[Rfam]
RNA sequence: GUCUUGUCAAUGAUGUUUUCAAUACAAAUGUCUGAACAUAUGAAUUUCAGUGAUUAUUUCUUUGUGACUGAGACGAGAC
Numbered sequence: 001g002u003c004u005u006g007u008c009a010a011u012g013a014u015g016u017u018u019u020c021a022a023u024a025c026a027a028a029u030g031u032c033u034g035a036a037c038a039u040a041u042g043a044a045u046u047u048c049a050g051u052g053a054u055u056a057u058u059u060c061u062u063u064g065u066g067a068c069u070g071a072g073a074c075g076a077g078a079c
Base pairs, nucleotide, nucleotide: 002078003077004076005075006074007073008072
Shown here is a 79-nucleotide RNA from Oncorhynchus tshawytscha, a member of the family "Small nucleolar RNA SNORD72". Rfam's curators write: snoRNA HBII-240 belongs to the CD family of snoRNAs. Lineage of the source: Eukaryota > Deuterostomia > Chordata > Neopterygii > Oncorhynchus. It scores 62 bits against the family's covariance model. The base pairs follow the family's consensus structure.